[Rfam]
RNA: Small nucleolar RNA snR60/Z15/Z230/Z193/J17
Organism: Coregonus sp. 'balchen'
RNA sequence: CUGAUACAAUGAUGACUGCAUAGUUCAGCAGAUAAAUGAUGACGAGUACUAAGCAUUGUCUUUCGCUCCUAUCUGAUGUGUUGG
Numbered sequence: 001c002u003g004a005u006a007c008a009a010u011g012a013u014g015a016c017u018g019c020a021u022a023g024u025u026c027a028g029c030a031g032a033u034a035a036a037u038g039a040u041g042a043c044g045a046g047u048a049c050u051a052a053g054c055a056u057u058g059u060c061u062u063u064c065g066c067u068c069c070u071a072u073c074u075g076a077u078g079u080g081u082u083g084g
Base pairs, nucleotide, nucleotide: 004081005080006079007078008077